This 277-nucleotide RNA from Macaca nemestrina belongs to the Rfam family "Mason-Pfizer monkey virus packaging signal". A reference for the family is Mustafa et al. (2004), "Mutational analysis of the predicted secondary RNA structure of the Mason-Pfizer monkey virus packaging signal", Virus Res. Rfam links the family to the GO term viral genome packaging. About the family: This family represents a group of sequences that are related to the Mason-Pfizer monkey virus (MPMV) packaging signal. The packaging signal is located in the 5' UTR and is required for specific RNA encapsidation. The base pairs follow the family's consensus structure, which was predicted with PFOLD. It is annotated as a cis-regulatory element.

[Rfam]
RNA sequence: CGGCGCCCGAACAGGGACCUGGAAAGAGACUCCGGAGGAGAAGAGGAGCCAAAGGACGCCGACGCGCUAACGAAGAACAAAGGAUUCAAACUUUUUCCCGAUCACCGCAGACCUGCCGCGUCAGAAUCCGAAGUAAGUGACACAUCCGAAAGGACAGAACAAUAAGCCAACAUCAAAUAUAUUAGGACAAAUUAAAAGAGGCUUUAAAGAUACCGAGAGUCAAAAUGUUAAAGGUAAUGAUUGUUAAAAUUUUUGAUUUGUAAAGACACGUGCCUUG
Numbered sequence: 001c002g003g004c005g006c007c008c009g010a011a012c013a014g015g016g017a018c019c020u021g022g023a024a025a026g027a028g029a030c031u032c033c034g035g036a037g038g039a040g041a042a043g044a045g046g047a048g049c050c051a052a053a054g055g056a057c058g059c060c061g062a063c064g065c066g067c068u069a070a071c072g073a074a075g076a077a078c079a080a081a082g083g084a085u086u087c088a089a090a091c092u093u094u095u096u097c098c099c100g101a102u103c104a105c106c107g108c109a110g111a112c113c114u115g116c117c118g119c120g121u122c123a124g125a126a127u128c129c130g131a132a133g134u135a136a137g138u139g140a141c142a143c144a145u146c147c148g149a150a151a152g153g154a155c156a157g158a159a160c161a162a163u164a165a166g167c168c169a170a171c172a173u174c175a176a177a178u179a180u181a182u183u184a185g186g187a188c189a190a191a192u193u194a195a196a197a198g199a200g201g202c203u204u205u206a207a208a209g210a211u212a213c214c215g216a217g218a219g220u221c222a223a224a225a226u227g228u229u230a231a232a233g234g235u236a237a238u239g240a241u242u243g244u245u246a247a248a249a250u251u252u253u254u255g256a257u258u259u260g261u262a263a264a265g266a267c268a269c270g271u272g273c274c275u276u277g
Stems, first nucleotide, its partner, number of pairs: 006028001008026001033046001090134003096131002102126001103124001106120003110116001141157001145154003163206003166202003214255007225242001227241004263276003267272001